[Rfam]
RNA: Mammalian CPEB3 ribozyme
RNA sequence: ACUGGCUAUAGGCCAUAACAGAAGUGCUCAUGGUGUAGCCCUUUCAGAUUCCAACAAAUCUGAGAAUUCUGCU
Numbered sequence: 001a002c003u004g005g006c007u008a009u010a011g012g013c014c015a016u017a018a019c020a021g022a023a024g025u026g027c028u029c030a031u032g033g034u035g036u037a038g039c040c041c042u043u044u045c046a047g048a049u050u051c052c053a054a055c056a057a058a059u060c061u062g063a064g065a066a067u068u069c070u071g072c073u
Base pairs, nucleotide, nucleotide: 011040012039013038017073019071020070021069022068023067024036025035026034045062046061047060048059049058050057